[Rfam]
RNA sequence: UCGUUAUAAGGGCAAAGCCAUUGAAAAGUGGUGACGCAAAGCUAAAGGGGCUUCAUUGUUACACACUAAGCCAGCCAGCUGCCGAA
Numbered sequence: 001u002c003g004u005u006a007u008a009a010g011g012g013c014a015a016a017g018c019c020a021u022u023g024a025a026a027a028g029u030g031g032u033g034a035c036g037c038a039a040a041g042c043u044a045a046a047g048g049g050g051c052u053u054c055a056u057u058g059u060u061a062c063a064c065a066c067u068a069a070g071c072c073a074g075c076c077a078g079c080u081g082c083c084g085a086a
Stems, first nucleotide, its partner, number of pairs: 012037002017032006040080004047076002049072003057065003
RNA: c-di-GMP-I riboswitch aptamer